Record summary:
The record is a 396-nucleotide sequence from Marinigracilibium pacificum, which matches "Bacterial RNase P class A" in Rfam. Taxonomically the source falls in Marinigracilibium (Bacteria, Bacteroidota, Cytophagia, Cytophagales).

RNA sequence: AAGGCAGUACAGCUUAUCGCACAAAAUCUGAUUUUGUGAGGAAAGUCCGGGCAACACAGGGCGCCGUACUUCCUAACGGGAAGGUGCUGGCAGGCUUCGGCUUGUCAGUAACAGCCAGUGCCACAGAAAAUAUACCGCCCUGACAAGCCGCAAGGCUUCGUUAUGGGUAAGGGUGAAAAGGUGAGGUAAGAGCUCACCGGUCAUGGUGUGAAUCAUGAUGCGAGGUAAACCUUACGGGUUGAAAGACCAAAUAGGUUCCGGGUUAAGCUGCCCGCUUAUUUCCUUCGGGAAGCCGGAAUGGGUAGGUCGAUAGAGCCUGAUGGUGACGUCAGGCCCAGAUAAAUGAUAAGCACUCCGCAAGGAGGACAGAACCCGGCUUAUCGUGCUGCCUUUGUU
Numbered sequence: 001a002a003g004g005c006a007g008u009a010c011a012g013c014u015u016a017u018c019g020c021a022c023a024a025a026a027u028c029u030g031a032u033u034u035u036g037u038g039a040g041g042a043a044a045g046u047c048c049g050g051g052c053a054a055c056a057c058a059g060g061g062c063g064c065c066g067u068a069c070u071u072c073c074u075a076a077c078g079g080g081a082a083g084g085u086g087c088u089g090g091c092a093g094g095c096u097u098c099g100g101c102u103u104g105u106c107a108g109u110a111a112c113a114g115c116c117a118g119u120g121c122c123a124c125a126g127a128a129a130a131u132a133u134a135c136c137g138c139c140c141u142g143a144c145a146a147g148c149c150g151c152a153a154g155g156c157u158u159c160g161u162u163a164u165g166g167g168u169a170a171g172g173g174u175g176a177a178a179a180g181g182u183g184a185g186g187u188a189a190g191a192g193c194u195c196a197c198c199g200g201u202c203a204u205g206g207u208g209u210g211a212a213u214c215a216u217g218a219u220g221c222g223a224g225g226u227a228a229a230c231c232u233u234a235c236g237g238g239u240u241g242a243a244a245g246a247c248c249a250a251a252u253a254g255g256u257u258c259c260g261g262g263u264u265a266a267g268c269u270g271c272c273c274g275c276u277u278a279u280u281u282c283c284u285u286c287g288g289g290a291a292g293c294c295g296g297a298a299u300g301g302g303u304a305g306g307u308c309g310a311u312a313g314a315g316c317c318u319g320a321u322g323g324u325g326a327c328g329u330c331a332g333g334c335c336c337a338g339a340u341a342a343a344u345g346a347u348a349a350g351c352a353c354u355c356c357g358c359a360a361g362g363a364g365g366a367c368a369g370a371a372c373c374c375g376g377c378u379u380a381u382c383g384u385g386c387u388g389c390c391u392u393u394g395u396u
Stems, first nucleotide, its partner, number of pairs: 001392010011381001012351007020038008043379003047376005052241004060286002064237005069083005084112001085110011113232002118230002120226003135172002137168004143162001180198006199221001200219008245308004255299006279291004315334008